Small nucleolar RNA SNORA77: a 130-nucleotide sequence from Sinocyclocheilus rhinocerous.
[Rfam]
Nucleotides: 130
Stems, first nucleotide, its partner, number of pairs: 001055006014042007022034003069119004076113003083107005
Number, partner (000 for none) and nucleotide at each position: 001055g002054c003053a004052g005051a006050c007000u008000c009000a010000c011000u012000c013000u014042g015041u016040u017039u018038a019037a020036g021000a022034c023033u024032g025000a026000c027000a028000c029000a030000u031000c032024c033023a034022g035000c036020c037019u038018u039017a040016g041015a042014c043000u044000u045000u046000u047000u048000a049000u050006g051005u052004c053003u054002g055001c056000g057000a058000c059000a060000g061000u062000a063000a064000c065000a066000g067000g068000a069119a070118g071117a072116a073000c074000a075000u076113u077112a078111c079000a080000a081000a082000c083107u084106g085105c086104c087103u088000u089000g090000c091000c092000a093000u094000u095000c096000a097000u098000u099000u100000g101000g102000g103087a104086g105085g106084u107083g108000a109000c110000c111078g112077u113076a114000u115000c116072u117071u118070c119069u120000c121000a122000g123000a124000c125000a126000u127000u128000u129000u130000u